[Rfam]
RNA: U1 spliceosomal RNA
Organism: Erinaceus europaeus
RNA sequence: AUACUUACCUGGCAGGGGAGGUACCAUGAUCAUGGAGGUGGCUUUCCUAGGGCGAGGCUUAUCCAUUGCACUCUGAUGUGCUGACUCCUGCAGUUUCCCCAAAUAUGGGAAACUUGACGGCAUACUUUGUGGUAGUGGGGGACUGUGUUCACAUUCUCCCCUU
Numbered sequence: 001a002u003a004c005u006u007a008c009c010u011g012g013c014a015g016g017g018g019a020g021g022u023a024c025c026a027u028g029a030u031c032a033u034g035g036a037g038g039u040g041g042c043u044u045u046c047c048u049a050g051g052g053c054g055a056g057g058c059u060u061a062u063c064c065a066u067u068g069c070a071c072u073c074u075g076a077u078g079u080g081c082u083g084a085c086u087c088c089u090g091c092a093g094u095u096u097c098c099c100c101a102a103a104u105a106u107g108g109g110a111a112a113c114u115u116g117a118c119g120g121c122a123u124a125c126u127u128u129g130u131g132g133u134a135g136u137g138g139g140g141g142a143c144u145g146u147g148u149u150c151a152c153a154u155u156c157u158c159c160c161c162u163u
Stems, first nucleotide, its partner, number of pairs: 012121002015118001016048006024041004049089004054085001056082003060078003064075001091116003094112003098108002137162006145154003